[Rfam]
RNA sequence: AACCUUUAACCGCUGAAUUUGUUUUAGUGCAAAACGGAGGAACCAAUUUUUUGAUAAAUAUGAAUAGUAUUUAUCUUGGGGUGAAUCUUAGUAGAAGGGAUACUCUCAGUCACUAACCCGACAGUUAACUUCGUAAGCGUAUAAUAAGAGGGAAA
Numbered sequence: 001a002a003c004c005u006u007u008a009a010c011c012g013c014u015g016a017a018u019u020u021g022u023u024u025u026a027g028u029g030c031a032a033a034a035c036g037g038a039g040g041a042a043c044c045a046a047u048u049u050u051u052u053g054a055u056a057a058a059u060a061u062g063a064a065u066a067g068u069a070u071u072u073a074u075c076u077u078g079g080g081g082u083g084a085a086u087c088u089u090a091g092u093a094g095a096a097g098g099g100a101u102a103c104u105c106u107c108a109g110u111c112a113c114u115a116a117c118c119c120g121a122c123a124g125u126u127a128a129c130u131u132c133g134u135a136a137g138c139g140u141a142u143a144a145u146a147a148g149a150g151g152g153a154a155a
Stems, first nucleotide, its partner, number of pairs: 011139004018033005034134006044078002079119003087094002097113001099111002